[Rfam]
Shown here is an 88-nucleotide sequence from Echinops telfairi, a member of the family "Small nucleolar RNA SNORD60". Rfam links the family to the GO terms RNA processing and nucleolus. It is one of the family's seed sequences. NCBI's taxonomy places the organism under Eukaryota, Opisthokonta, Gnathostomata, Eutheria, Echinops. Clan: SNORD60 clan.
Nucleotides: 088
Stems, first nucleotide, its partner, number of pairs: 001087002003083002043060007
Number, partner (000 for none) and nucleotide at each position: 001087a002086g003083c004082u005000a006000g007000u008000g009000a010000u011000g012000a013000a014000u015000u016000g017000c018000g019000u020000a021000a022000u023000u024000u025000c026000u027000g028000a029000c030000a031000c032000c033000u034000c035000g036000u037000a038000u039000g040000a041000g042000a043060a044059c045058u046057g047056c048055a049054c050000g051000c052000a053000c054049g055048u056047g057046c058045g059044g060043u061000c062000u063000g064000a065000u066000u067000a068000g069000c070000u071000u072000g073000c074000a075000a076000g077000a078000c079000u080000g081000a082004a083003g084000g085000c086002c087001u088000c